[Rfam]
Small nucleolar RNA SNORD22: a 126-nucleotide RNA sequence from Heterocephalus glaber.
The organism belongs to Heterocephalus, within Eukaryota.
The literature on the family includes a 1994 paper in Science by Tycowski et al., "Requirement for intron-encoded U22 small nucleolar RNA in 18S ribosomal RNA maturation".

RNA sequence: UCCCAGUGAUGAGACAUUCACACGUCUUACUUCCAGUCCUAGCCCCAGAGCCUGUAAAGGUGAACCCACUGGGGCCAGCUAGGGGAGGAGAAGAAAAUUUGUUCCAGAAGGAACUGUCUGAGGGAU
Dot-bracket structure: ((((.....................................................................................................................)))).
Numbered sequence: 001u002c003c004c005a006g007u008g009a010u011g012a013g014a015c016a017u018u019c020a021c022a023c024g025u026c027u028u029a030c031u032u033c034c035a036g037u038c039c040u041a042g043c044c045c046c047a048g049a050g051c052c053u054g055u056a057a058a059g060g061u062g063a064a065c066c067c068a069c070u071g072g073g074g075c076c077a078g079c080u081a082g083g084g085g086a087g088g089a090g091a092a093g094a095a096a097a098u099u100u101g102u103u104c105c106a107g108a109a110g111g112a113a114c115u116g117u118c119u120g121a122g123g124g125a126u
Stems, first nucleotide, its partner, number of pairs: 001125004